Rfam assigns this 35-nucleotide RNA from Dyadobacter fermentans to the family "DUF805b RNA". It is annotated as a cis-regulatory element. The source organism's lineage runs through Bacteria, Bacteroidota, Spirosomataceae, Dyadobacter and Dyadobacter fermentans. The sequence is in the family's curated seed alignment.
RNA sequence: GCAGGGGACGCUGAAAACCUGAAAAAGAGUAGGCU
Numbered sequence: 001g002c003a004g005g006g007g008a009c010g011c012u013g014a015a016a017a018c019c020u021g022a023a024a025a026a027g028a029g030u031a032g033g034c035u
Base pairs, nucleotide, nucleotide: 002021003020004019005018010034011033012032
Pairs were carried over by alignment from the consensus structure, which is taken from published work.